[Rfam]
RNA sequence: CCGCGGAAUUCGGGAGACUUCGGCCAGAGCCGGGGCCGAAGGAGCAACCGCCCCGGUAAACUCUCAGGCAGCAGGACCGGUUCCGCAUG
Numbered sequence: 001c002c003g004c005g006g007a008a009u010u011c012g013g014g015a016g017a018c019u020u021c022g023g024c025c026a027g028a029g030c031c032g033g034g035g036c037c038g039a040a041g042g043a044g045c046a047a048c049c050g051c052c053c054c055g056g057u058a059a060a061c062u063c064u065c066a067g068g069c070a071g072c073a074g075g076a077c078c079g080g081u082u083c084c085g086c087a088u089g
Stems, first nucleotide, its partner, number of pairs: 006084001008082001010080004020033004035069003038065002042063003048056002

Rfam assigns this 89-nucleotide RNA from Paracoccus jeotgali to the family "Glycine riboswitch aptamer". NCBI's taxonomy places the organism under Bacteria, Pseudomonadota, Alphaproteobacteria, Rhodobacterales, Paracoccus.